[Rfam]
RNA sequence: UUUUUGGAUAUAAUGUCCAUUUAAAGAUACGCUUGGUUUGUGGUUCCAAGCUAGUCUAAAUAGUUGUCGAGUUCGCAGCAUUUUAGUGCUCGGAUGAGUGGCGCUGUUUAUGAUGAACGUCCCAUAGUAA
Numbered sequence: 001u002u003u004u005u006g007g008a009u010a011u012a013a014u015g016u017c018c019a020u021u022u023a024a025a026g027a028u029a030c031g032c033u034u035g036g037u038u039u040g041u042g043g044u045u046c047c048a049a050g051c052u053a054g055u056c057u058a059a060a061u062a063g064u065u066g067u068c069g070a071g072u073u074c075g076c077a078g079c080a081u082u083u084u085a086g087u088g089c090u091c092g093g094a095u096g097a098g099u100g101g102c103g104c105u106g107u108u109u110a111u112g113a114u115g116a117a118c119g120u121c122c123c124a125u126a127g128u129a130a
Stems, first nucleotide, its partner, number of pairs: 001027009031051006040125004054114003057110003066102004071095002077090005
Rfam assigns this 130-nucleotide RNA sequence from Brachionus plicatilis to the family "RAGATH-11 RNA". Rfam 15.1 lists 87 matches to the family in 4 species. Rfam classes the family as a small RNA. The source organism's lineage runs through Eukaryota, Metazoa, Bilateria, Ploima and Brachionus.